Rfam assigns this 81-nucleotide sequence from Ornithorhynchus anatinus to the family "Small nucleolar RNA SNORD2". The family's RNA type in Rfam is C/D-box small nucleolar RNA. The literature on the family includes a 2004 paper in Gene by Zhou et al., "Identification of a novel box C/D snoRNA from mouse nucleolar cDNA library". Pairs were carried over by alignment from the consensus structure, which was predicted with WAR.
RNA sequence: GAGUGACGUGAUGGCAUACCAUCUUUCGGGACUGACCUGAGAUGGAGAUGGAAAAAAAAAAGUAAAGUCUGCUGAUCACUU
Numbered sequence: 001g002a003g004u005g006a007c008g009u010g011a012u013g014g015c016a017u018a019c020c021a022u023c024u025u026u027c028g029g030g031a032c033u034g035a036c037c038u039g040a041g042a043u044g045g046a047g048a049u050g051g052a053a054a055a056a057a058a059a060a061a062g063u064a065a066a067g068u069c070u071g072c073u074g075a076u077c078a079c080u081u
Stems, first nucleotide, its partner, number of pairs: 001081006